This 73-nucleotide RNA sequence from Dendroctonus ponderosae belongs to the Rfam family "mir-87 microRNA precursor family".
It scores 54 bits against the family's covariance model.
A reference for the family is Sempere et al. (2003), "Temporal regulation of microRNA expression in Drosophila melanogaster mediated by hormonal signals and broad-Complex gene activity", Dev Biol.

[Rfam]
RNA sequence: UUUUGACCAGCUUGAAAUUUUGCCCUUCCUUUGUUUUGAUACUGGGUGAGCAAAGUUUCAGGUGUGUCAAAGA
Numbered sequence: 001u002u003u004u005g006a007c008c009a010g011c012u013u014g015a016a017a018u019u020u021u022g023c024c025c026u027u028c029c030u031u032u033g034u035u036u037u038g039a040u041a042c043u044g045g046g047u048g049a050g051c052a053a054a055g056u057u058u059c060a061g062g063u064g065u066g067u068c069a070a071a072g073a
Stems, first nucleotide, its partner, number of pairs: 002071006010063006017056005023050001025048001028046003

The family has 44 seed sequences and 420 matches in Rfam 15.1.
The family's consensus secondary structure was predicted with RNAalifold.
The source organism's lineage runs through Eukaryota, Opisthokonta, Altocrustacea, Neuropteroidea and Dendroctonus.